Shown here is a 149-nucleotide RNA sequence from Pseudomonas sp. ABC1, a member of the family "radC RNA". It is annotated as a cis-regulatory element.
[Rfam]
RNA sequence: CCAUCCCCGAAAUGCCUGUCGACGAUGUCGACGACAUCCCAGGUAGCCCGCAGUCUUGAAGGCUACGGCACGGUUUUUUCCGUGCUGACUGCUACCCGUUCGCUUCGCAUCCUGGCCGCGAACAAUCACCGCAACGCGGUGGUGGAUGC
Numbered sequence: 001c002c003a004u005c006c007c008c009g010a011a012a013u014g015c016c017u018g019u020c021g022a023c024g025a026u027g028u029c030g031a032c033g034a035c036a037u038c039c040c041a042g043g044u045a046g047c048c049c050g051c052a053g054u055c056u057u058g059a060a061g062g063c064u065a066c067g068g069c070a071c072g073g074u075u076u077u078u079u080c081c082g083u084g085c086u087g088a089c090u091g092c093u094a095c096c097c098g099u100u101c102g103c104u105u106c107g108c109a110u111c112c113u114g115g116c117c118g119c120g121a122a123c124a125a126u127c128a129c130c131g132c133a134a135c136g137c138g139g140u141g142g143u144g145g146a147u148g149c
Base pairs, nucleotide, nucleotide: 012037013036014035015033018032019031020030021029022028023027043066044065045064046063047062048061052090053089054088055087067086068085069084070083071082072081073080118149119148120147125143126142127141128140129139130138131137132136
Dot-bracket structure: ...........((((..((((((...))))))).))).....((((((...[[[[.....))))))(((((((......)))))))]]]]...........................(((....((((((((...))))))))...)))